[Rfam]
A member of the RNA family "FMN riboswitch aptamer (RFN element)" from Clostridium botulinum, 117 nucleotides long. The RFN element is a highly conserved domain that is found frequently in the 5'-untranslated regions of prokaryotic mRNAs that encode for flavin mononucleotide (FMN) biosynthesis and transport proteins.

RNA sequence: UUAUAUCUUCAGGGCGGGGUGUAAUUCCCCACCGGCGGUAAAGCCCGCGAGCUAUUUUUAGCAUGAUUCGGUUAAAUUCCGAAGCCGACAGUAAAGUCUGGAUGGAAGAAGAUUAUA
Numbered sequence: 001u002u003a004u005a006u007c008u009u010c011a012g013g014g015c016g017g018g019g020u021g022u023a024a025u026u027c028c029c030c031a032c033c034g035g036c037g038g039u040a041a042a043g044c045c046c047g048c049g050a051g052c053u054a055u056u057u058u059u060a061g062c063a064u065g066a067u068u069c070g071g072u073u074a075a076a077u078u079c080c081g082a083a084g085c086c087g088a089c090a091g092u093a094a095a096g097u098c099u100g101g102a103u104g105g106a107a108g109a110a111g112a113u114u115a116u117a
Stems, first nucleotide, its partner, number of pairs: 005113006017029003031097002033087002035048004043085002067083005089100003